[Rfam]
RNA sequence: AUGGAUAUGAUGAUUAUUUCCCCAGUUGAUCGAAGCUGAAAUUACUGUGCGAUCUAUAUUUCUCUUUUUUGAGAAAUUCAAGCCAAUAAUCUGAUCCAU
Numbered sequence: 001a002u003g004g005a006u007a008u009g010a011u012g013a014u015u016a017u018u019u020c021c022c023c024a025g026u027u028g029a030u031c032g033a034a035g036c037u038g039a040a041a042u043u044a045c046u047g048u049g050c051g052a053u054c055u056a057u058a059u060u061u062c063u064c065u066u067u068u069u070u071g072a073g074a075a076a077u078u079c080a081a082g083c084c085a086a087u088a089a090u091c092u093g094a095u096c097c098a099u
Stems, first nucleotide, its partner, number of pairs: 001099005
Shown here is a 99-nucleotide RNA sequence from Cuscuta campestris, a member of the family "Small nucleolar RNA Z103". For this family Rfam cites "The high diversity of snoRNAs in plants: identification and comparative study of 120 snoRNA genes from Oryza sativa" (Chen et al., Nucleic Acids Res, 2003). Lineage of the source: Eukaryota > Embryophyta > Spermatophyta > Convolvulaceae > Cuscuta sect. Cleistogrammica. Gene Ontology terms of the family: RNA processing and nucleolus. Rfam classes the family as a C/D-box small nucleolar RNA. Rfam 15.1 lists 2,844 matches to the family in 233 species. The base pairs follow the family's consensus structure, which was predicted with PFOLD.